[Rfam]
RNA: Bacteroidales small SRP
Organism: Duncaniella muris
RNA sequence: UGCAGCCGGGUAAGUCCUACACGACCAGCUCCCUGAGAACUCCGCCAGGUCUUGAUCGAAGCAACGGUAUCAGGUUGUAGCGGUGCGAUGUAGUAAGCUUACCCUUUU
Numbered sequence: 001u002g003c004a005g006c007c008g009g010g011u012a013a014g015u016c017c018u019a020c021a022c023g024a025c026c027a028g029c030u031c032c033c034u035g036a037g038a039a040c041u042c043c044g045c046c047a048g049g050u051c052u053u054g055a056u057c058g059a060a061g062c063a064a065c066g067g068u069a070u071c072a073g074g075u076u077g078u079a080g081c082g083g084u085g086c087g088a089u090g091u092a093g094u095a096a097g098c099u100u101a102c103c104c105u106u107u108u
Stems, first nucleotide, its partner, number of pairs: 008104008017093005022087002024084002